[Rfam]
RNA sequence: UAUUGUGGUGGUUUCCGUAUUCGGCAGAUCUGUCGCUAUGGCAGAGCGGCCUCGAACUACCACAGAGAUCAGAAUGGAGAAGGCUCUGCUGAGAACUUUUUCGAGCUUUGCGUUUUCGGCAUUUUUUCAGCUCCUACAGAA
Numbered sequence: 001u002a003u004u005g006u007g008g009u010g011g012u013u014u015c016c017g018u019a020u021u022c023g024g025c026a027g028a029u030c031u032g033u034c035g036c037u038a039u040g041g042c043a044g045a046g047c048g049g050c051c052u053c054g055a056a057c058u059a060c061c062a063c064a065g066a067g068a069u070c071a072g073a074a075u076g077g078a079g080a081a082g083g084c085u086c087u088g089c090u091g092a093g094a095a096c097u098u099u100u101u102c103g104a105g106c107u108u109u110g111c112g113u114u115u116u117c118g119g120c121a122u123u124u125u126u127u128c129a130g131c132u133c134c135u136a137c138a139g140a141a
Stems, first nucleotide, its partner, number of pairs: 005063007023051003027047001029045004076134004103128003
Rfam assigns this 141-nucleotide RNA from Glareola pratincola to the family "Small nucleolar RNA SNORA12".
The organism belongs to Glareola, within Eukaryota.
For this family Rfam cites "A novel experimental approach for systematic identification of box H/ACA snoRNAs from eukaryotes" (Gu et al., Nucleic Acids Res, 2005).
By type it is an H/ACA-box small nucleolar RNA.
A search with the family's covariance model found it, with a score of 58 bits.
Gene Ontology terms of the family: nucleolus and RNA processing.